[Rfam]
Shown here is a 111-nucleotide RNA sequence from Niallia circulans, a member of the family "SAM riboswitch aptamer (S box leader)". A search with the family's covariance model found it, with a score of 101 bits. Its family is annotated with regulation of gene expression in the Gene Ontology.
RNA sequence: UUCUUAUCAAGAGAGGUAGAGGGAAUGGCCCGACGAAACCUCAGCAACCUUCAGUAUCCUAUAUACUGAAAAGGUGCUAAUUCCAUCAAGCAAAUGCUUGAAAGAUAAGAA
Numbered sequence: 001u002u003c004u005u006a007u008c009a010a011g012a013g014a015g016g017u018a019g020a021g022g023g024a025a026u027g028g029c030c031c032g033a034c035g036a037a038a039c040c041u042c043a044g045c046a047a048c049c050u051u052c053a054g055u056a057u058c059c060u061a062u063a064u065a066c067u068g069a070a071a072a073g074g075u076g077c078u079a080a081u082u083c084c085a086u087c088a089a090g091c092a093a094a095u096g097c098u099u100g101a102a103a104g105a106u107a108a109g110a111a
Stems, first nucleotide, its partner, number of pairs: 001111008013042005021031003025086004043078004048074002050070007082103001087100005
Lineage of the source: Bacteria > Bacillota > Caryophanales > Bacillaceae > Niallia.